[Rfam]
RNA sequence: CCCGCAUUUAUGACGGUCUGCCUUCAAACCAGUUCUUGGUGAGGCAGACCCGAAAUCUGCGUG
Number, nucleotide and partner (000 for none) at each position: 001c063002c000003c061004g060005c059006a000007u000008u000009u000010a000011u000012g000013a000014c000015g050016g049017u048018c047019u046020g045021c044022c043023u042024u041025c000026a000027a000028a000029c000030c038031a037032g036033u000034u000035c000036u032037u031038g030039g000040u000041g024042a023043g022044g021045c020046a019047g018048a017049c016050c015051c000052g000053a000054a000055a000056u000057c000058u000059g005060c004061g003062u000063g001
Selenocysteine insertion sequence 1: a 63-nucleotide sequence from Ornithorhynchus anatinus.
Rfam's curators write: The incorporation of selenocysteine into a protein sequence is directed by an in-frame UGA codon (usually a stop codon) within the coding region of the mRNA. Selenoprotein mRNAs contain a conserved secondary structure in the 3' UTR that is required for the distinction of UGA stop from UGA selenocysteine.
On this family, see Walczak et al., RNA 1996: "A novel RNA structural motif in the selenocysteine insertion element of eukaryotic selenoprotein mRNAs".
Rfam links the family to the GO term selenocysteine incorporation.
Pairs were carried over by alignment from the consensus structure, which is taken from published work.